[Rfam]
RNA: Group II catalytic intron D1-D4-1
RNA sequence: UAACCUAAUUAGUGAUAAUUAGCUGAGCAGUCAGAAGUCAGCAGAGGUCAUAGUACCUUAUCAACUCGAGGUGAUGGGGGAAGGAC
Numbered sequence: 001u002a003a004c005c006u007a008a009u010u011a012g013u014g015a016u017a018a019u020u021a022g023c024u025g026a027g028c029a030g031u032c033a034g035a036a037g038u039c040a041g042c043a044g045a046g047g048u049c050a051u052a053g054u055a056c057c058u059u060a061u062c063a064a065c066u067c068g069a070g071g072u073g074a075u076g077g078g079g080g081a082a083g084g085a086c
Stems, first nucleotide, its partner, number of pairs: 001025002005022007038045002047086003056079006
Dot-bracket structure: ((..(((((((....))))))).))............((....)).(((......((((((............))))))....)))